Annotation
The record is a 354-nucleotide RNA sequence from Pectobacterium atrosepticum, which matches "Soft rot Enterobacteriaceae Rev 13 asRNA" in Rfam. Rfam links the family to the GO term cellular response to starvation. From bacteria cultured under starvation conditions. Antisense to ECA0388.
[Rfam]
RNA sequence: AAAUAACUCUUCGGUAAUCAUGAAGCCGUGAAGCCGCGAUUUUAAUGUCUAUUAGGAAAAAUCCCAAUAAACAUAAGCGGACUAAUAAUAAAAAGAGAUUAUUCUCUGAUUUUUUUAUUUAUCGCGAGAGAUUCUACAAGAAGUUUUUAAUAGGAUGAUAUUUAACGCAUUCCCGUUAAUCGUCUGACUACGCUACUCAUCCUUUCCGCCUCAAAUUAACGUUCGUAAAAUCAGCAAAAAACGAGGAUUUUUCGUUCAUAUACCUAACAAGAAAGCCGAUAGUGCGCCGCUAUAUUCGCGCACUAUCGACAUCAGACAGGGGUUAAUUCGGGGUUGAGAAUCAAGAGUUGGGGA
Dot-bracket structure: ...((((((((((((..(((((....))))).))))........((((.((((.(((....))).)))).))))..((((...(((((.(((((((((....)))))..)))).)))))..))))(((((.((((...)))).)))))....((((((...((((((......)))))).(((......)))....))))))((((.(((((.((((((((..((.((((((..(.......)..)))))).))..).....(((.....((....(((((((((((..........)))))))))))...)).....)))))))))).))))).))))...))))))))....
Numbered sequence: 001a002a003a004u005a006a007c008u009c010u011u012c013g014g015u016a017a018u019c020a021u022g023a024a025g026c027c028g029u030g031a032a033g034c035c036g037c038g039a040u041u042u043u044a045a046u047g048u049c050u051a052u053u054a055g056g057a058a059a060a061a062u063c064c065c066a067a068u069a070a071a072c073a074u075a076a077g078c079g080g081a082c083u084a085a086u087a088a089u090a091a092a093a094a095g096a097g098a099u100u101a102u103u104c105u106c107u108g109a110u111u112u113u114u115u116u117a118u119u120u121a122u123c124g125c126g127a128g129a130g131a132u133u134c135u136a137c138a139a140g141a142a143g144u145u146u147u148u149a150a151u152a153g154g155a156u157g158a159u160a161u162u163u164a165a166c167g168c169a170u171u172c173c174c175g176u177u178a179a180u181c182g183u184c185u186g187a188c189u190a191c192g193c194u195a196c197u198c199a200u201c202c203u204u205u206c207c208g209c210c211u212c213a214a215a216u217u218a219a220c221g222u223u224c225g226u227a228a229a230a231u232c233a234g235c236a237a238a239a240a241a242c243g244a245g246g247a248u249u250u251u252u253c254g255u256u257c258a259u260a261u262a263c264c265u266a267a268c269a270a271g272a273a274a275g276c277c278g279a280u281a282g283u284g285c286g287c288c289g290c291u292a293u294a295u296u297c298g299c300g301c302a303c304u305a306u307c308g309a310c311a312u313c314a315g316a317c318a319g320g321g322g323u324u325a326a327u328u329c330g331g332g333g334u335u336g337a338g339a340a341u342c343a344a345g346a347g348u349u350g351g352g353g354a
Stems, first nucleotide, its partner, number of pairs: 004350008012036004018031005045074004050069004055064003077125004084119005090113004094107005126148005132142004153202006162179006181192003203339004208334005214328007221257001224254002227251006235243001263321003271313002277308011